[Rfam]
RNA sequence: GGGAGAUGAGGAGUGGUAACAUCUCGCAACUUUUACUGCGAGAGGGGUGCCCGCCCCAACCCAAGCCUGUUACGACAACAGGGGCAUCCCCAUCAUUUUACCAUCUGAUCCC
Numbered sequence: 001g002g003g004a005g006a007u008g009a010g011g012a013g014u015g016g017u018a019a020c021a022u023c024u025c026g027c028a029a030c031u032u033u034u035a036c037u038g039c040g041a042g043a044g045g046g047g048u049g050c051c052c053g054c055c056c057c058a059a060c061c062c063a064a065g066c067c068u069g070u071u072a073c074g075a076c077a078a079c080a081g082g083g084g085c086a087u088c089c090c091c092a093u094c095a096u097u098u099u100a101c102c103a104u105c106u107g108a109u110c111c112c
Stems, first nucleotide, its partner, number of pairs: 001112004014103005023042005044091004048086002050083002067081004
The record is a 112-nucleotide sequence, which matches "Small nucleolar RNA Z279/snoR105/snoR108" in Rfam. Rfam classes the family as a C/D-box small nucleolar RNA. This family includes the plant snoRNAs known as Z279, snoR105 and snoR108. The base pairs follow the family's consensus structure, which was predicted with PFOLD.